[Rfam]
The record is a 173-nucleotide RNA sequence from Fusarium verticillioides, which matches "U4 spliceosomal RNA" in Rfam.
It is annotated as a spliceosomal small nuclear RNA.
From the family's description: U4 small nuclear RNA (U4 snRNA) is a component of the major U2-dependent spliceosome.
The family is grouped with related families in Rfam's "U4 clan".
For this family Rfam cites "Mechanism of 5' splice site transfer for human spliceosome activation" (Charenton et al., Science, 2019).
Rfam's curators put it in the seed alignment.
RNA sequence: AUCCAAGUGCAUGGGCGUUUUCCUUCUCCGUGAAGCGAUAAGCUGAGAGAGGAAUUUUGCUAGUUGAAAACUAUACACUGACCGCUCCUUGUUGGGUUCGCCUGGCAAGGGAAUUUUUGGAACUUUCAUUUUCUUUCAUUGCGACCAGUUCUUGAUGGACUGCCGUGAAGAAG
Numbered sequence: 001a002u003c004c005a006a007g008u009g010c011a012u013g014g015g016c017g018u019u020u021u022c023c024u025u026c027u028c029c030g031u032g033a034a035g036c037g038a039u040a041a042g043c044u045g046a047g048a049g050a051g052g053a054a055u056u057u058u059g060c061u062a063g064u065u066g067a068a069a070a071c072u073a074u075a076c077a078c079u080g081a082c083c084g085c086u087c088c089u090u091g092u093u094g095g096g097u098u099c100g101c102c103u104g105g106c107a108a109g110g111g112a113a114u115u116u117u118u119g120g121a122a123c124u125u126u127c128a129u130u131u132u133c134u135u136u137c138a139u140u141g142c143g144a145c146c147a148g149u150u151c152u153u154g155a156u157g158g159a160c161u162g163c164c165g166u167g168a169a170g171a172a173g
Base pairs, nucleotide, nucleotide: 020054021053022052023051024050026049027048028047034044035043036042086111087110088109089108090107091106092105093104094103095102096101124173125172126171127170